[Rfam]
RNA sequence: AUUUGAUAAAGGCAAACUUGCUGAAAGGUAAGGACGCAAAGCCGCGAGUCUAAGGUGGGGACACUAUGAUAGUCGGGUUGCCAAA
Numbered sequence: 001a002u003u004u005g006a007u008a009a010a011g012g013c014a015a016a017c018u019u020g021c022u023g024a025a026a027g028g029u030a031a032g033g034a035c036g037c038a039a040a041g042c043c044g045c046g047a048g049u050c051u052a053a054g055g056u057g058g059g060g061a062c063a064c065u066a067u068g069a070u071a072g073u074c075g076g077g078u079u080g081c082c083a084a085a
Stems, first nucleotide, its partner, number of pairs: 012037002017032006040079004045075003048070003055064003
About this RNA:
c-di-GMP-I riboswitch aptamer: an 85-nucleotide RNA sequence from Bacillus sp. T33-2. Its family is annotated with cyclic-di-GMP binding in the Gene Ontology. Rfam describes the family as follows. GEMM was predicted in a large-scale screen for bacterial structured RNA regulatory elements.